[Rfam]
RNA: mir-460 microRNA precursor family
Organism: Eleutherodactylus coqui
Nucleotides: 077
Base pairs, nucleotide, nucleotide: 012066013065015063016062017061018060019059020058021057024054026052027051028050029049030048031047
Number, partner (000 for none) and nucleotide at each position: 001000c002000u003000c004000u005000a006000c007000a008000g009000c010000a011000c012066c013065u014000g015063c016062a017061u018060u019059g020058u021057a022000c023000a024054c025000a026052c027051u028050g029049u030048g031047u032000g033000u034000g035000g036000g037000u038000c039000a040000u041000c042000a043000g044000c045000u046000u047031g048030c049029a050028c051027a052026g053000c054024g055000c056000a057021u058020a059019c060018a061017a062016u063015g064000u065013g066012g067000a068000u069000g070000u071000u072000a073000u074000a075000u076000g077000a